[Rfam]
RNA sequence: AGAGACAAGUAGAAGCACCCGCUUCUCACCUGAUUGACACACAACUGUAGUUGACAGGUACAAAUCCGACUUAUUUGUAAUGAAAUUUAGGAUGUGUGGGUGCAGUAUGUGUACCGACACUUUUUUUAUGAA
Numbered sequence: 001a002g003a004g005a006c007a008a009g010u011a012g013a014a015g016c017a018c019c020c021g022c023u024u025c026u027c028a029c030c031u032g033a034u035u036g037a038c039a040c041a042c043a044a045c046u047g048u049a050g051u052u053g054a055c056a057g058g059u060a061c062a063a064a065u066c067c068g069a070c071u072u073a074u075u076u077g078u079a080a081u082g083a084a085a086u087u088u089a090g091g092a093u094g095u096g097u098g099g100g101u102g103c104a105g106u107a108u109g110u111g112u113a114c115c116g117a118c119a120c121u122u123u124u125u126u127u128a129u130g131a132a
Stems, first nucleotide, its partner, number of pairs: 011026006028059003036052003039048002095119003099115006
This 132-nucleotide sequence from Gracilibacillus thailandensis belongs to the Rfam family "Ribosomal protein L20 leader".
The source organism's lineage runs through Bacteria, Bacillati, Bacillota, Bacillaceae and Gracilibacillus.
On this family, see Zengel and Lindahl, Prog Nucleic Acid Res Mol Biol 1994: "Diverse mechanisms for regulating ribosomal protein synthesis in Escherichia coli".
It scores 83 bits against the family's covariance model.
This family is a putative r-protein leader autoregulatory structure found in B. subtilis and other low-GC Gram-positive bacteria. It is located in the 5' untranslated regions of mRNAs encoding initiation factor 3 followed by ribosomal proteins L35 and L20 (infC-rpmI-rplT). A Rho-independent transcription terminator structure that is probably involved in regulation is included at the 3' end.